Shown here is a 96-nucleotide RNA, a member of the family "DUF3800-V RNA". It is annotated as a small RNA. Rfam's curators put it in the seed alignment. The family's consensus secondary structure is taken from published work.
RNA sequence: UGGAGCUGGUAAUAACAUACUACUUUGUGCCUAAAUGCUCACGAGUGGAACACUCGUUUUGAGUUUAGGAACACCACAGGUAGCACCGCCGCUCCU
Numbered sequence: 001u002g003g004a005g006c007u008g009g010u011a012a013u014a015a016c017a018u019a020c021u022a023c024u025u026u027g028u029g030c031c032u033a034a035a036u037g038c039u040c041a042c043g044a045g046u047g048g049a050a051c052a053c054u055c056g057u058u059u060u061g062a063g064u065u066u067a068g069g070a071a072c073a074c075c076a077c078a079g080g081u082a083g084c085a086c087c088g089c090c091g092c093u094c095c096u
Stems, first nucleotide, its partner, number of pairs: 002095005009089002025079005030069007041057006